[Rfam]
RNA sequence: AAAAAGGGUCAGUGGGCUAAAUAUGCCACGCUCACCCUAGUUUUGGUGAGUGUUGGAUGGCUAUCAAGACAUAUGGCUGACAUAAUUUGUGUAAACUUAUAGGGUAGGCUCGCUGCCGACCCUCCA
Numbered sequence: 001a002a003a004a005a006g007g008g009u010c011a012g013u014g015g016g017c018u019a020a021a022u023a024u025g026c027c028a029c030g031c032u033c034a035c036c037c038u039a040g041u042u043u044u045g046g047u048g049a050g051u052g053u054u055g056g057a058u059g060g061c062u063a064u065c066a067a068g069a070c071a072u073a074u075g076g077c078u079g080a081c082a083u084a085a086u087u088u089g090u091g092u093a094a095a096c097u098u099a100u101a102g103g104g105u106a107g108g109c110u111c112g113c114u115g116c117c118g119a120c121c122c123u124c125c126a
Stems, first nucleotide, its partner, number of pairs: 008081005013028003017025001029052008053076003057072003102125001104124001107121002110119003

U11 spliceosomal RNA: a 126-nucleotide RNA from Cannabis sativa. Rfam links the family to the GO terms U11 snRNP, mRNA 5'-splice site recognition and pre-mRNA 5'-splice site binding. Pairs were carried over by alignment from the consensus structure, which is taken from published work. Rfam classes the family as a spliceosomal small nuclear RNA.